This 111-nucleotide RNA sequence from Streptomyces boluensis belongs to the Rfam family "TPP riboswitch aptamer (THI element)". From the family's description: Vitamin B(1) in its active form thiamin pyrophosphate (TPP) is an essential coenzyme that is synthesised by coupling of pyrimidine and thiazole moieties in bacteria. The base pairs follow the family's consensus structure, which is taken from published work. Taxonomically the source falls in Streptomyces (Bacteria, Bacillati, Actinomycetota, Actinomycetes).

RNA sequence: UAAACCACUCGCGGGAGCCCGGAGCACCGGGCUGAGAGGGAGGCUCAGCGCCUCCGACCGUCCGAACCUGAUCCGGGUCAUGCCGGCGAAGGGAGGGGCUGGAAACCCAUG
Numbered sequence: 001u002a003a004a005c006c007a008c009u010c011g012c013g014g015g016a017g018c019c020c021g022g023a024g025c026a027c028c029g030g031g032c033u034g035a036g037a038g039g040g041a042g043g044c045u046c047a048g049c050g051c052c053u054c055c056g057a058c059c060g061u062c063c064g065a066a067c068c069u070g071a072u073c074c075g076g077g078u079c080a081u082g083c084c085g086g087c088g089a090a091g092g093g094a095g096g097g098g099c100u101g102g103a104a105a106c107c108c109a110u111g
Stems, first nucleotide, its partner, number of pairs: 008097003011061004017032005039055005067092003073086004